[Rfam]
RNA sequence: CGGCAAUCGUGCCGAAUCCGCACACGUACCGUCACCGCCUCGGGGUGCCCGUCAAAGGGUCGAACGCGGGGGUACGUGGAGGUCCAAC
Numbered sequence: 001c002g003g004c005a006a007u008c009g010u011g012c013c014g015a016a017u018c019c020g021c022a023c024a025c026g027u028a029c030c031g032u033c034a035c036c037g038c039c040u041c042g043g044g045g046u047g048c049c050c051g052u053c054a055a056a057g058g059g060u061c062g063a064a065c066g067c068g069g070g071g072g073u074a075c076g077u078g079g080a081g082g083u084c085c086a087a088c
Stems, first nucleotide, its partner, number of pairs: 023078008035069004040063003047060004